[Rfam]
Shown here is a 127-nucleotide RNA from Abeliophyllum distichum, a member of the family "Plastid-psbA-1 3UTR RNA". Rfam's curators put it in the seed alignment. Lineage of the source: Eukaryota > Viridiplantae > Spermatophyta > Gunneridae > Abeliophyllum. For this family Rfam cites "Retrograde signaling in plants: A critical review focusing on the GUN pathway and beyond" (Richter et al., Plant Commun, 2023).
RNA sequence: UCGAAGCUCCAUCUACAAAUGGAUAAGACCCGGUCUUAGUGUAUAGGAGUUAUUGAAAAAAAAAAGAAAAUAAAGGAGCAAUAACGCCCUCUUGAUAGAACAAGAAAGGGUUUAUUGCUCCUUUAUU
Numbered sequence: 001u002c003g004a005a006g007c008u009c010c011a012u013c014u015a016c017a018a019a020u021g022g023a024u025a026a027g028a029c030c031c032g033g034u035c036u037u038a039g040u041g042u043a044u045a046g047g048a049g050u051u052a053u054u055g056a057a058a059a060a061a062a063a064a065a066g067a068a069a070a071u072a073a074a075g076g077a078g079c080a081a082u083a084a085c086g087c088c089c090u091c092u093u094g095a096u097a098g099a100a101c102a103a104g105a106a107a108g109g110g111u112u113u114a115u116u117g118c119u120c121c122u123u124u125a126u127u
Stems, first nucleotide, its partner, number of pairs: 008023005072124013087109002090105004